[Rfam]
RNA sequence: AAUUGGUCCGAAAGUAGUGGGUUAUCAACAUGUGCUUCUCUUUCCCCUUCCCUCCACUGCUGUGCUUUGACUAAUUUUAU
Numbered sequence: 001a002a003u004u005g006g007u008c009c010g011a012a013a014g015u016a017g018u019g020g021g022u023u024a025u026c027a028a029c030a031u032g033u034g035c036u037u038c039u040c041u042u043u044c045c046c047c048u049u050c051c052c053u054c055c056a057c058u059g060c061u062g063u064g065c066u067u068u069g070a071c072u073a074a075u076u077u078u079a080u
Stems, first nucleotide, its partner, number of pairs: 001076008010068002014063002016058006027042002030039001
RNA: Y RNA
Organism: Crocodylus porosus